[Rfam]
RNA sequence: CUUCAGCGAGCCGAGCCGCAGCGGCGGCCGCCCGUCGCGGUCCUGACCGUAGGUGGCCAGCAGGGCAUCCGCCUC
Numbered sequence: 001c002u003u004c005a006g007c008g009a010g011c012c013g014a015g016c017c018g019c020a021g022c023g024g025c026g027g028c029c030g031c032c033c034g035u036c037g038c039g040g041u042c043c044u045g046a047c048c049g050u051a052g053g054u055g056g057c058c059a060g061c062a063g064g065g066c067a068u069c070c071g072c073c074u075c
Stems, first nucleotide, its partner, number of pairs: 015025003031071001038065001043060003047056003